[Rfam]
RNA: DUF805b RNA
RNA sequence: AAAGCGUUGGCCGAAAAGCUUUGACAGAGUAGGCA
Numbered sequence: 001a002a003a004g005c006g007u008u009g010g011c012c013g014a015a016a017a018g019c020u021u022u023g024a025c026a027g028a029g030u031a032g033g034c035a
Stems, first nucleotide, its partner, number of pairs: 002021004010034003